[Rfam]
Nucleotides: 111
Stems, first nucleotide, its partner, number of pairs: 001019004008033004013028001035094004039089008049063005066078004098110004
Number, partner (000 for none) and nucleotide at each position: 001019u002018g003017g004016u005000g006000a007000a008033g009032c010031c011030u012000a013028c014000u015000u016004a017003c018002c019001g020000a021000u022000a023000u024000c025000a026000a027000u028013g029000a030011a031010g032009g033008c034000a035094c036093u037092c038091g039089a040088u041087c042086a043085u044084g045083c046082u047000g048000u049063g050062g051061g052060u053059u054000g055000a056000a057000u058000a059053a060052a061051c062050c063049u064000u065000a066078g067077a068076c069075g070000c071000c072000a073000g074000u075069c076068g077067u078066c079000a080000a081000a082046a083045g084044u085043g086042u087041g088040g089039u090000g091038u092037g093036a094035g095000g096000a097000a098110g099109g100108g101107u102000u103000a104000g105000a106000u107101g108100c109099c110098c111000a
epsC RNA: a 111-nucleotide RNA from Domibacillus mangrovi. Rfam 15.1 lists 450 matches to the family in 334 species. By type it is a cis-regulatory element.